The family of this 105-nucleotide RNA sequence from Halobacillus karajensis is "SAM riboswitch aptamer (S box leader)". Gene Ontology term of the family: regulation of gene expression.

[Rfam]
RNA sequence: AACUUAUCCAGAGAGGUGUAGGGACUGGCCCUUUGAUACCUCAGCAACCAGCCAUUGGCACGGUGCUAAAUCCAGAAGGUAGUAGUUAUACCUUGAAGAUAAGGA
Number, nucleotide and partner (000 for none) at each position: 001a000002a000003c103004u102005u101006a100007u099008c098009c000010a000011g000012a000013g042014a041015g040016g039017u038018g000019u000020a000021g031022g030023g029024a000025c075026u074027g073028g072029c023030c022031c021032u000033u000034u000035g000036a000037u000038a017039c016040c015041u014042c013043a067044g066045c065046a064047a000048c063049c062050a000051g059052c058053c057054a000055u000056u000057g053058g052059c051060a000061c000062g049063g048064u046065g045066c044067u043068a000069a000070a000071u097072c028073c027074a026075g025076a094077a093078g092079g091080u090081a089082g000083u000084a000085g000086u000087u000088a000089u081090a080091c079092c078093u077094u076095g000096a000097a071098g008099a007100u006101a005102a004103g003104g000105a000
The organism belongs to Halobacillus, within Bacteria.
Pairs were carried over by alignment from the consensus structure, which is taken from published work.